Shown here is a 272-nucleotide sequence from Nannospalax galili, a member of the family "Mason-Pfizer monkey virus packaging signal". Lineage of the source: Eukaryota > Sarcopterygii > Theria > Spalacidae > Nannospalax. It is annotated as a cis-regulatory element. A search with the family's covariance model found it, with a score of 123 bits. A reference for the family is Mustafa et al. (2004), "Mutational analysis of the predicted secondary RNA structure of the Mason-Pfizer monkey virus packaging signal", Virus Res. The base pairs follow the family's consensus structure, which was predicted with PFOLD. This family represents a group of sequences that are related to the Mason-Pfizer monkey virus (MPMV) packaging signal. The packaging signal is located in the 5' UTR and is required for specific RNA encapsidation.
RNA sequence: UGGAGCCCAAUGUGGGGCUUGGAUACUGGGGGAAAACUUAAGGGACACAACGAAAGAAGAACGGGUGCGCACCUGCUCAAAUAGUUCGGAGACAUCACGGUAGCCUGCUAUGACCGAGCGACAGGUAAGUUGGUCUUUAAUCAUGGGGCAAGAAUUAAGUCAGUGUCAGAAAUAUGUGAUACAGUUGAGAGAAGCUUUACAGGCAAGAGGAGUCAAGGUUACAACUGAGGAUUUAUUUCAUUUCUUUGAUUUCAUGAAAGACAUCUGCCCAU
Numbered sequence: 001u002g003g004a005g006c007c008c009a010a011u012g013u014g015g016g017g018c019u020u021g022g023a024u025a026c027u028g029g030g031g032g033a034a035a036a037c038u039u040a041a042g043g044g045a046c047a048c049a050a051c052g053a054a055a056g057a058a059g060a061a062c063g064g065g066u067g068c069g070c071a072c073c074u075g076c077u078c079a080a081a082u083a084g085u086u087c088g089g090a091g092a093c094a095u096c097a098c099g100g101u102a103g104c105c106u107g108c109u110a111u112g113a114c115c116g117a118g119c120g121a122c123a124g125g126u127a128a129g130u131u132g133g134u135c136u137u138u139a140a141u142c143a144u145g146g147g148g149c150a151a152g153a154a155u156u157a158a159g160u161c162a163g164u165g166u167c168a169g170a171a172a173u174a175u176g177u178g179a180u181a182c183a184g185u186u187g188a189g190a191g192a193a194g195c196u197u198u199a200c201a202g203g204c205a206a207g208a209g210g211a212g213u214c215a216a217g218g219u220u221a222c223a224a225c226u227g228a229g230g231a232u233u234u235a236u237u238u239c240a241u242u243u244c245u246u247u248g249a250u251u252u253c254a255u256g257a258a259a260g261a262c263a264u265c266u267g268c269c270c271a272u
Base pairs, nucleotide, nucleotide: 006031007030008029012026013025014024039047086125087124089122093118096112097111099109100108131151133149134148136147137146138145139144156199157198158197159195160194207247208246209245210244211243212242216234217233218232219231220230257272260269262267